[Rfam]
RNA sequence: CGGCCUUAGGGCUAACAUAAGAUAUGCUUAUCUCCGUUGGGAGAAAGUUUUGUUUAAUUAGUCGUGUAUACUCGAGCUCGUGAGAGUGUAAGUAUACAAAAUCUUAAAAGUUGAGU
Numbered sequence: 001c002g003g004c005c006u007u008a009g010g011g012c013u014a015a016c017a018u019a020a021g022a023u024a025u026g027c028u029u030a031u032c033u034c035c036g037u038u039g040g041g042a043g044a045a046a047g048u049u050u051u052g053u054u055u056a057a058u059u060a061g062u063c064g065u066g067u068a069u070a071c072u073c074g075a076g077c078u079c080g081u082g083a084g085a086g087u088g089u090a091a092g093u094a095u096a097c098a099a100a101a102u103c104u105u106a107a108a109a110g111u112u113g114a115g116u
Base pairs, nucleotide, nucleotide: 002013003012004011005010020055021054022053023052026048027047028046029045031044032043033042034041035040067096068095069094070093071092072091076087077086078085079084